[Rfam]
RNA sequence: UUUGUCAACGAUACCUGGAGACCCCUCCUCGAGGAGCGCGAGGAUUAGAUUUCCUGGUUUUUGUUGACAAAUCCACCCCU
Numbered sequence: 001u002u003u004g005u006c007a008a009c010g011a012u013a014c015c016u017g018g019a020g021a022c023c024c025c026u027c028c029u030c031g032a033g034g035a036g037c038g039c040g041a042g043g044a045u046u047a048g049a050u051u052u053c054c055u056g057g058u059u060u061u062u063g064u065u066g067a068c069a070a071a072u073c074c075a076c077c078c079c080u
Stems, first nucleotide, its partner, number of pairs: 001071011
RNA: Bacillus-plasmid RNA